A member of the RNA family "RAGATH-18 RNA", 66 nucleotides long. The base pairs follow the family's consensus structure, which is taken from published work. About the family: Actinobacteria, Firmicutes, Fusobacteria, Thermotogae (1 example). Rfam classes the family as a small RNA.

RNA sequence: CCCUUGGAGUGUUAUACCAAACGGGAGUAGCCUAAUUAGGCAAAAUCGGACACGUAGAACAGGGAA
Numbered sequence: 001c002c003c004u005u006g007g008a009g010u011g012u013u014a015u016a017c018c019a020a021a022c023g024g025g026a027g028u029a030g031c032c033u034a035a036u037u038a039g040g041c042a043a044a045a046u047c048g049g050a051c052a053c054g055u056a057g058a059a060c061a062g063g064g065a066a
Stems, first nucleotide, its partner, number of pairs: 001064004009053005022048003030041003